[Rfam]
RNA sequence: CCCAGAGGUAUUGAUUGGUGAGAAAUCAACAUACUCUGUAUGUUGAAACCAUUUCAGUUGCACCAACCUACGCGGACGCGUAGGUUUUUUUU
Numbered sequence: 001c002c003c004a005g006a007g008g009u010a011u012u013g014a015u016u017g018g019u020g021a022g023a024a025a026u027c028a029a030c031a032u033a034c035u036c037u038g039u040a041u042g043u044u045g046a047a048a049c050c051a052u053u054u055c056a057g058u059u060g061c062a063c064c065a066a067c068c069u070a071c072g073c074g075g076a077c078g079c080g081u082a083g084g085u086u087u088u089u090u091u092u
Base pairs, nucleotide, nucleotide: 016065017064018063019062020061021054028044029043030042031041032040033039066085067084068083069082070081071080072079073078
The family of this 92-nucleotide RNA from Sodalis glossinidius is "OmrA-B family". Rfam 15.1 lists 153 matches to the family in 128 species. The base pairs follow the family's consensus structure, which was predicted with WAR.